[Rfam]
RNA sequence: AACAUCUUGUCGGAGUGCCCCUGGUGAUUUAACCAGCAGGGGCUGAGACCGCAAACGCGGGAUCCGUUGAACCUGAUCAGGCUAAUACCUGCGAAGGAAACAAGAGCGCAUCGGCC
Numbered sequence: 001a002a003c004a005u006c007u008u009g010u011c012g013g014a015g016u017g018c019c020c021c022u023g024g025u026g027a028u029u030u031a032a033c034c035a036g037c038a039g040g041g042g043c044u045g046a047g048a049c050c051g052c053a054a055a056c057g058c059g060g061g062a063u064c065c066g067u068u069g070a071a072c073c074u075g076a077u078c079a080g081g082c083u084a085a086u087a088c089c090u091g092c093g094a095a096g097g098a099a100a101c102a103a104g105a106g107c108g109c110a111u112c113g114g115c116c
Stems, first nucleotide, its partner, number of pairs: 006104005011066004016060001017043007050059003072097003078091004
Notes
Rfam assigns this 116-nucleotide RNA sequence from Lacimicrobium alkaliphilum to the family "TPP riboswitch aptamer (THI element)". The source organism's lineage runs through Bacteria, Pseudomonadota, Gammaproteobacteria, Alteromonadales and Lacimicrobium.